[Rfam]
RNA sequence: CAUAGAUUUGGCGAUGGGGUUCCGCCAAAACCGCCUGCACCUGCCGCAGCGCUGAUGACUCCUACAAUUCU
Numbered sequence: 001c002a003u004a005g006a007u008u009u010g011g012c013g014a015u016g017g018g019g020u021u022c023c024g025c026c027a028a029a030a031c032c033g034c035c036u037g038c039a040c041c042u043g044c045c046g047c048a049g050c051g052c053u054g055a056u057g058a059c060u061c062c063u064a065c066a067a068u069u070c071u
Base pairs, nucleotide, nucleotide: 010026011025012024013023016062017061018060019059020058021057033052034051

Rfam assigns this 71-nucleotide RNA sequence from Granulicella aggregans to the family "Fluoride riboswitch aptamer (crcB RNA motif)". Lineage of the source: Bacteria > Pseudomonadati > Terriglobales > Acidobacteriaceae > Granulicella. A search with the family's covariance model found it, with a score of 50 bits.